[Rfam]
The family of this 161-nucleotide RNA from Natronomonas pharaonis is "Sense overlapping transcript RNA 0042 (sot)". The source organism's lineage runs through Archaea, Methanobacteriati, Halobacteria, Natronomonadaceae and Natronomonas pharaonis. About the family: It is associated with IS1341-type transposase (tnpB) genes, at the 3'-end in H. salinarum NRC-1. The tetraloop structural motif may be functional. Rfam classes the family as a small RNA.

RNA sequence: CGGUGACUCCGAAUCCGACACAGGAUAGGAGUAACGGCUGUUUGGCUCAGCCUUCGGUACGCCUGUUCGACAAAUCCACGGGGCGAGUCGCCCCACAAGAACAGGUUGUCCCGUGAACCCUAAUAUCCCAACGCGGGAAUCCCACGGCUUCAGCCGUGUGG
Dot-bracket structure: ..((..((((..(((........))).))))..))(((((.......)))))..(((.((.(((((((...........(((((.....)))))....)))))))..)).)))............((((.....)))).((.((((((....)))))).))